This 58-nucleotide RNA from Cryptosporangium arvum belongs to the Rfam family "msiK RNA". Pairs were carried over by alignment from the consensus structure, which is taken from published work. The family's RNA type in Rfam is cis-regulatory element.
[Rfam]
RNA sequence: GCGCAGCCCUCACCACUCGGAUCGUCCGGCACGUUCCUGCCGGUGGAAAGGACUGCAU
Numbered sequence: 001g002c003g004c005a006g007c008c009c010u011c012a013c014c015a016c017u018c019g020g021a022u023c024g025u026c027c028g029g030c031a032c033g034u035u036c037c038u039g040c041c042g043g044u045g046g047a048a049a050g051g052a053c054u055g056c057a058u
Stems, first nucleotide, its partner, number of pairs: 009050002013046003026043006